[Rfam]
RNA: Small nucleolar RNA U19
RNA sequence: AUUUGGCUUAGUUAGGAGGCUGAAAUCAAUUCGAAAAACCAGAGAUAUCGGUUCAGAUAUUUUUGGCCACUUUAACUCAGGCCUUUUGAGGGGACUCUCUGUGCUUUUUCUUCGUCAAUUGUCCCCCAAGCAGCCUUGGACAUUU
Numbered sequence: 001a002u003u004u005g006g007c008u009u010a011g012u013u014a015g016g017a018g019g020c021u022g023a024a025a026u027c028a029a030u031u032c033g034a035a036a037a038a039c040c041a042g043a044g045a046u047a048u049c050g051g052u053u054c055a056g057a058u059a060u061u062u063u064u065g066g067c068c069a070c071u072u073u074a075a076c077u078c079a080g081g082c083c084u085u086u087u088g089a090g091g092g093g094a095c096u097c098u099c100u101g102u103g104c105u106u107u108u109u110c111u112u113c114g115u116c117a118a119u120u121g122u123c124c125c126c127c128a129a130g131c132a133g134c135c136u137u138g139g140a141c142a143u144u145u
Stems, first nucleotide, its partner, number of pairs: 005020001007018003039066003045060005076139002079136004085130004090126006098118001